[Rfam]
A member of the RNA family "mir-16 microRNA precursor family", 77 nucleotides long. Its family is annotated with miRNA-mediated post-transcriptional gene silencing and RISC complex in the Gene Ontology. Clan: mir-15 clan.
RNA sequence: UCCUGGCUCUAGCAGCACAGAAAUAUUGGCAUGGGGAAGUGAGUCUGCCAAUAUUGGCUGUGCUGCUCCAGGCAGGG
Numbered sequence: 001u002c003c004u005g006g007c008u009c010u011a012g013c014a015g016c017a018c019a020g021a022a023a024u025a026u027u028g029g030c031a032u033g034g035g036g037a038a039g040u041g042a043g044u045c046u047g048c049c050a051a052u053a054u055u056g057g058c059u060g061u062g063c064u065g066c067u068c069c070a071g072g073c074a075g076g077g
Stems, first nucleotide, its partner, number of pairs: 001077003005073001007071001010070001011067008022055008